[Rfam]
RNA sequence: UUGCCCAUCGGGGCUUUGGAUACCUGCUUUAUUUAU
Number, nucleotide and partner (000 for none) at each position: 001u000002u000003g014004c013005c012006c011007a000008u000009c000010g000011g006012g005013g004014c003015u000016u000017u026018g025019g024020a000021u000022a000023c000024c019025u018026g017027c000028u000029u000030u000031a000032u000033u000034u000035a000036u000

Shown here is a 36-nucleotide sequence from Felis catus, a member of the family "XIST RNA A repeat". It is annotated as a small RNA. Pairs were carried over by alignment from the consensus structure, which was predicted with CMfinder. The family has 54 seed sequences and 900 matches in Rfam 15.1.